[Rfam]
RNA: RNase MRP
Organism: Octopus sinensis
RNA sequence: UGAUGUAUUCGAAGACUUGCUUUCGGGUCACAAACGGAGAUGAGUCUAUCUCAUUAUCACCGGAGGGAAAGUCCCCUGACUGAGCGUAGAGACUACUGAUUUGAGGAAUCGUGUCGAACCUAUCAGCUGCCUCCCGUUGAUGCAAUGACGCAAUUUGGCGGAGCUGGGAGUUGUUGGUAGGUAUCUUCGUCAUAGUAGAGAUCGAUGCAAGUGGCACUUUAGUGUUAACUGAAUGGGGAUUACUCUAAAGGAAUU
Dot-bracket structure: .(((.(.((..(..((((((.(((.(((........((((((....))))))......))).)))...[[..[[[[........((((.....))).)((.(((....))).)).(.(...((((((.....(.(......((......((......))...))...).)..))))))...).)......................)))))).((((....)))).........]]]].]]....).)).).)))